Rfam assigns this 143-nucleotide RNA from Gadus morhua to the family "U4 spliceosomal RNA". Rfam links the family to the GO terms spliceosomal tri-snRNP complex assembly and U4 snRNP. The base pairs follow the family's consensus structure, which is taken from published work. NCBI's taxonomy places the organism under Eukaryota, Eumetazoa, Actinopteri, Teleostei, Gadus.
RNA sequence: AUCUUUGCGCAGCGGCAGUAUCGUAGCCUAUGAGGUCUAACUGAGGCGCGAUUAUUGCUAGUUGAAAACUUUACCCAAUACCCCGUCAAAGACGACUUGCAAUAUAGUCGGAGAUGGCAAUUUUUUGACAGUUUCUAAGGAGA
Numbered sequence: 001a002u003c004u005u006u007g008c009g010c011a012g013c014g015g016c017a018g019u020a021u022c023g024u025a026g027c028c029u030a031u032g033a034g035g036u037c038u039a040a041c042u043g044a045g046g047c048g049c050g051a052u053u054a055u056u057g058c059u060a061g062u063u064g065a066a067a068a069c070u071u072u073a074c075c076c077a078a079u080a081c082c083c084c085g086u087c088a089a090a091g092a093c094g095a096c097u098u099g100c101a102a103u104a105u106a107g108u109c110g111g112a113g114a115u116g117g118c119a120a121u122u123u124u125u126u127g128a129c130a131g132u133u134u135c136u137a138a139g140g141a142g143a
Stems, first nucleotide, its partner, number of pairs: 020052005026047003034042003085118004093110005132143004

U4 small nuclear RNA (U4 snRNA) is a component of the major U2-dependent spliceosome.